[Rfam]
RNA sequence: UGCAAGUAUUUUACAAUUAAGACACAACUGGCUCUUGUACAGAUCAUUUAUUAAUCU
Numbered sequence: 001u002g003c004a005a006g007u008a009u010u011u012u013a014c015a016a017u018u019a020a021g022a023c024a025c026a027a028c029u030g031g032c033u034c035u036u037g038u039a040c041a042g043a044u045c046a047u048u049u050a051u052u053a054a055u056c057u
Stems, first nucleotide, its partner, number of pairs: 018037005025030001
This 57-nucleotide RNA from Mikania micrantha belongs to the Rfam family "Plastid-rps18 3UTR RNA". The match comes from Rfam's covariance-model search (71 bits). Rfam classes the family as a cis-regulatory element. Taxonomically the source falls in Mikania (Eukaryota, Streptophytina, Asterales, Asteroideae). The family has 238 seed sequences and 1,462 matches in Rfam 15.1. On this family, see Richter et al., Plant Commun 2023: "Retrograde signaling in plants: A critical review focusing on the GUN pathway and beyond".